[Rfam]
RNA sequence: AGAUGAGGUAGAGGUCGCGGUUUUUAUGAGUAAUCCGGAAGAGGGGCAGGGACCCCGCCGAUGCCGGAUGAAAGGAUCAGCCGCCGAAGCGCCGCAUGUCUCUGUUUGCGGCAGCUGGGACUGUAUCCGAACAGGUGCAGGACUGUCAUGGGAGAGCCAUGAUGAACUAUCCGUUUU
Numbered sequence: 001a002g003a004u005g006a007g008g009u010a011g012a013g014g015u016c017g018c019g020g021u022u023u024u025u026a027u028g029a030g031u032a033a034u035c036c037g038g039a040a041g042a043g044g045g046g047c048a049g050g051g052a053c054c055c056c057g058c059c060g061a062u063g064c065c066g067g068a069u070g071a072a073a074g075g076a077u078c079a080g081c082c083g084c085c086g087a088a089g090c091g092c093c094g095c096a097u098g099u100c101u102c103u104g105u106u107u108g109c110g111g112c113a114g115c116u117g118g119g120a121c122u123g124u125a126u127c128c129g130a131a132c133a134g135g136u137g138c139a140g141g142a143c144u145g146u147c148a149u150g151g152g153a154g155a156g157c158c159a160u161g162a163u164g165a166a167c168u169a170u171c172c173g174u175u176u177u
Stems, first nucleotide, its partner, number of pairs: 007171005017084006025076001033069006040062001088116003091112006098105001117144002121140007146162006